[Rfam]
RNA sequence: ACCUGUGAUGAUAUAUCCACAUUAUAGAGGCGCAGAGAGCUCCAAGUUCCCGUUUUGUGGGGAGAACCUACUUGGAGCUGUUGCAUUCAAAUGACAUCUCUGGAAUUUCUGAGGC
Numbered sequence: 001a002c003c004u005g006u007g008a009u010g011a012u013a014u015a016u017c018c019a020c021a022u023u024a025u026a027g028a029g030g031c032g033c034a035g036a037g038a039g040c041u042c043c044a045a046g047u048u049c050c051c052g053u054u055u056u057g058u059g060g061g062g063a064g065a066a067c068c069u070a071c072u073u074g075g076a077g078c079u080g081u082u083g084c085a086u087u088c089a090a091a092u093g094a095c096a097u098c099u100c101u102g103g104a105a106u107u108u109c110u111g112a113g114g115c
Stems, first nucleotide, its partner, number of pairs: 002114002048062005
The record is a 115-nucleotide RNA sequence from Zingiber officinale, which matches "Small nucleolar RNA Z278" in Rfam. The organism belongs to Zingiber, within Eukaryota. A search with the family's covariance model found it, with a score of 70 bits. Rfam's curators write: snoZ278 is a C/D box small nucleolar RNA. Its methylation guide targets have not been reported.